[Rfam]
RNA sequence: CUGUGAAUAUUUUUGCUGUUCUAAUUUUGUAAUAAUCAGGUCAGGCUAAACAUUUGCUAUAGUAAGGCCAUGCAUGUGUCCCAAGGCCUAGUUCUUUCCCCAGGUCUGGGUUUCUACAUGCUGGUGACAAAC
Dot-bracket structure: ..(((..........(((.(((.(((.......))).))).)))..........))).........((((.((........(.((((((.(........).)))))).)..........)))))).......